RNA: Bacterial RNase P class A
RNA sequence: AGAGUAAGGGUAGGCGGUUGCGGACAGGUUUCCUGUCUGAGGAAAGUCCGGGCUCCCGAAAGACCAAACUUGCUGGGUAACGCCCAGUGCGGGCGACCGUGAGGAUAGUGCCACAGAAAGAUACCGCCAAUUAGCAAUUAGCUUUUAGCCUUGGGCUGAUAACUGAUUACUAAUUGGUAAGGGUGCAACGGUGCGGUAAGAGCGCACCAGCAGCGUCGAGAGGCGCUGGCUAGGUAAACCCCGGUUGGGAGCAAGGUGGAUGGAACUAUGGUUGGUCUUUUACCAGUUCCGAUAUGAGGAACCGCAAGAGGCGUUUGGUGACAAGCGUCCCAGAUAGAUAACCGCCCUCGAAAGUGCUUGGCACUUUUGGAGAACAGAACCCGGCUUAUGACUUACUCUUUCC
Numbered sequence: 001a002g003a004g005u006a007a008g009g010g011u012a013g014g015c016g017g018u019u020g021c022g023g024a025c026a027g028g029u030u031u032c033c034u035g036u037c038u039g040a041g042g043a044a045a046g047u048c049c050g051g052g053c054u055c056c057c058g059a060a061a062g063a064c065c066a067a068a069c070u071u072g073c074u075g076g077g078u079a080a081c082g083c084c085c086a087g088u089g090c091g092g093g094c095g096a097c098c099g100u101g102a103g104g105a106u107a108g109u110g111c112c113a114c115a116g117a118a119a120g121a122u123a124c125c126g127c128c129a130a131u132u133a134g135c136a137a138u139u140a141g142c143u144u145u146u147a148g149c150c151u152u153g154g155g156c157u158g159a160u161a162a163c164u165g166a167u168u169a170c171u172a173a174u175u176g177g178u179a180a181g182g183g184u185g186c187a188a189c190g191g192u193g194c195g196g197u198a199a200g201a202g203c204g205c206a207c208c209a210g211c212a213g214c215g216u217c218g219a220g221a222g223g224c225g226c227u228g229g230c231u232a233g234g235u236a237a238a239c240c241c242c243g244g245u246u247g248g249g250a251g252c253a254a255g256g257u258g259g260a261u262g263g264a265a266c267u268a269u270g271g272u273u274g275g276u277c278u279u280u281u282a283c284c285a286g287u288u289c290c291g292a293u294a295u296g297a298g299g300a301a302c303c304g305c306a307a308g309a310g311g312c313g314u315u316u317g318g319u320g321a322c323a324a325g326c327g328u329c330c331c332a333g334a335u336a337g338a339u340a341a342c343c344g345c346c347c348u349c350g351a352a353a354g355u356g357c358u359u360g361g362c363a364c365u366u367u368u369g370g371a372g373a374a375c376a377g378a379a380c381c382c383g384g385c386u387u388a389u390g391a392c393u394u395a396c397u398c399u400u401u402c403c
Stems, first nucleotide, its partner, number of pairs: 001399008012389001013346007021039008044387003048384005053251004062279002067246003071243002073087005088102001089100004103241002108239002110235003124182002126178009190208006210230001211228007255303003262290006270284003274280001310329008